[Rfam]
RNA sequence: GCGAGUAGGGAAAAGGAAGCCAUGAGUAUCUUAGAGCGGUGGGCAUGGGAACAUGGAGGAAAGCAUAGAUUUCUUGGCCUCUUAAUUUAGGUGGCAAAGAUUGUUUUAUGUUUUCCUGAUGCCUCCCAUGCCUAUUGUUCUGAGGUAUUCCAUCCUUUUCCUAUUUGCU
Numbered sequence: 001g002c003g004a005g006u007a008g009g010g011a012a013a014a015g016g017a018a019g020c021c022a023u024g025a026g027u028a029u030c031u032u033a034g035a036g037c038g039g040u041g042g043g044c045a046u047g048g049g050a051a052c053a054u055g056g057a058g059g060a061a062a063g064c065a066u067a068g069a070u071u072u073c074u075u076g077g078c079c080u081c082u083u084a085a086u087u088u089a090g091g092u093g094g095c096a097a098a099g100a101u102u103g104u105u106u107u108a109u110g111u112u113u114u115c116c117u118g119a120u121g122c123c124u125c126c127c128a129u130g131c132c133u134a135u136u137g138u139u140c141u142g143a144g145g146u147a148u149u150c151c152a153u154c155c156u157u158u159u160c161c162u163a164u165u166u167g168c169u
Stems, first nucleotide, its partner, number of pairs: 009160005015154002024150003029145010040134011052121003056117001058116007

Shown here is a 169-nucleotide RNA from Triticum aestivum, a member of the family "MIR2118 microRNA precursor family". It scores 124 bits against the family's covariance model. NCBI's taxonomy places the organism under Eukaryota, Tracheophyta, Poales, Pooideae, Triticum.